[Rfam]
RNA sequence: AUGUAGAAUACGAUAUUUUUGUCCAUGUAUGCCACAAAAGUUGUAAGCUGAUUAUAUCAUCGUGCCUGUUUAUAUGCAAUAUAAAGAACCUGAUAAACUAUCCAGGUUCUUUUUUGA
Numbered sequence: 001a002u003g004u005a006g007a008a009u010a011c012g013a014u015a016u017u018u019u020u021g022u023c024c025a026u027g028u029a030u031g032c033c034a035c036a037a038a039a040g041u042u043g044u045a046a047g048c049u050g051a052u053u054a055u056a057u058c059a060u061c062g063u064g065c066c067u068g069u070u071u072a073u074a075u076g077c078a079a080u081a082u083a084a085a086g087a088a089c090c091u092g093a094u095a096a097a098c099u100a101u102c103c104a105g106g107u108u109c110u111u112u113u114u115u116g117a
Stems, first nucleotide, its partner, number of pairs: 034073001036071003040065002042062002083112010
RNA: Bacillus sRNA ncr1015